[Rfam]
RNA sequence: ACGUUCGGGUAAUCGCUGCAAUGCAAAUUGUAGAGGAAAGUCCAUGCUCGCACAAGCUGCGAUGCUUGUAGUGUUCGUGCCUAGCGAAGUCAUAAGCUAGGGCAGCUUGUCAUGAGCUGACGGCAGGGAAAAUGCCUAAGUCUUUUUAAGAUAUGGCAUGAAUACUUUGAAAGUGCCACAGUGACGUAGCCUGUUCAGAAAUGAACAGGGUGGAACGAGGUAAACCCCACGAGCGAGAAACCCAAAUUAUGGUAGGGGCACUUUCUCACUUGGAACUGAACAAGGAGAAGGACAGAUUGUUUCAAUCUGUAGAUAGAUGAUUACCACCGGAGUACAAGACGUAAGUCGUUUGCAGUACGAUGGUACAAAACAUGGCUUACAGAA
Numbered sequence: 001a002c003g004u005u006c007g008g009g010u011a012a013u014c015g016c017u018g019c020a021a022u023g024c025a026a027a028u029u030g031u032a033g034a035g036g037a038a039a040g041u042c043c044a045u046g047c048u049c050g051c052a053c054a055a056g057c058u059g060c061g062a063u064g065c066u067u068g069u070a071g072u073g074u075u076c077g078u079g080c081c082u083a084g085c086g087a088a089g090u091c092a093u094a095a096g097c098u099a100g101g102g103c104a105g106c107u108u109g110u111c112a113u114g115a116g117c118u119g120a121c122g123g124c125a126g127g128g129a130a131a132a133u134g135c136c137u138a139a140g141u142c143u144u145u146u147u148a149a150g151a152u153a154u155g156g157c158a159u160g161a162a163u164a165c166u167u168u169g170a171a172a173g174u175g176c177c178a179c180a181g182u183g184a185c186g187u188a189g190c191c192u193g194u195u196c197a198g199a200a201a202u203g204a205a206c207a208g209g210g211u212g213g214a215a216c217g218a219g220g221u222a223a224a225c226c227c228c229a230c231g232a233g234c235g236a237g238a239a240a241c242c243c244a245a246a247u248u249a250u251g252g253u254a255g256g257g258g259c260a261c262u263u264u265c266u267c268a269c270u271u272g273g274a275a276c277u278g279a280a281c282a283a284g285g286a287g288a289a290g291g292a293c294a295g296a297u298u299g300u301u302u303c304a305a306u307c308u309g310u311a312g313a314u315a316g317a318u319g320a321u322u323a324c325c326a327c328c329g330g331a332g333u334a335c336a337a338g339a340c341g342u343a344a345g346u347c348g349u350u351u352g353c354a355g356u357a358c359g360a361u362g363g364u365a366c367a368a369a370a371c372a373u374g375g376c377u378u379a380c381a382g383a384a
Stems, first nucleotide, its partner, number of pairs: 004384003007380001008325007016033006038378003042375005047237005052069006075232005080101006102121001103119006122227002125167003133158004140152003173225002175221003190209008241257003261291007292310006327363003332358004
A member of the RNA family "Bacterial RNase P class B" from Bacillus yapensis, 384 nucleotides long. The source organism's lineage runs through Bacteria, Bacillota, Bacilli, Caryophanales and Bacillus. On this family, see Frank and Pace, Annu Rev Biochem 1998: "Ribonuclease P: unity and diversity in a tRNA processing ribozyme". The family's RNA type in Rfam is ribozyme. Ribonuclease P (RNase P) is a ubiquitous endoribonuclease, found in archaea, bacteria and eukarya as well as chloroplasts and mitochondria. Its best characterised activity is the generation of mature 5'-ends of tRNAs by cleaving the 5'-leader elements of precursor-tRNAs. Cellular RNase Ps are ribonucleoproteins. RNA from bacterial RNase Ps retains its catalytic activity in the absence of the protein subunit, i.e. it is a ribozyme. It scores 340 bits against the family's covariance model.